The record is a 127-nucleotide sequence from Aureimonas pseudogalii, which matches "Rhizobiales sRNA Atu_C8" in Rfam. The organism belongs to Aureimonas, within Bacteria. The family's consensus secondary structure was predicted with CMfinder. It is annotated as a small RNA. A reference for the family is Wilms et al. (2012), "Deep sequencing uncovers numerous small RNAs on all four replicons of the plant pathogen Agrobacterium tumefaciens", RNA Biol.
RNA sequence: CAUGUACACGGCAAAGCUCAUUCUCGUAGGAAGGCGCACACGCGAGGCGGUCUGACGACCACCCGGCUGAUGCCACGUGUGCGCAAGACAAAGGCCCCCUCGAAAGGGCCUUUUUUUAUUGCCGAAA
Numbered sequence: 001c002a003u004g005u006a007c008a009c010g011g012c013a014a015a016g017c018u019c020a021u022u023c024u025c026g027u028a029g030g031a032a033g034g035c036g037c038a039c040a041c042g043c044g045a046g047g048c049g050g051u052c053u054g055a056c057g058a059c060c061a062c063c064c065g066g067c068u069g070a071u072g073c074c075a076c077g078u079g080u081g082c083g084c085a086a087g088a089c090a091a092a093g094g095c096c097c098c099c100u101c102g103a104a105a106g107g108g109c110c111u112u113u114u115u116u117u118a119u120u121g122c123c124g125a126a127a
Stems, first nucleotide, its partner, number of pairs: 009026001029123002032120001034084009046063002049060002066073002090112001092111006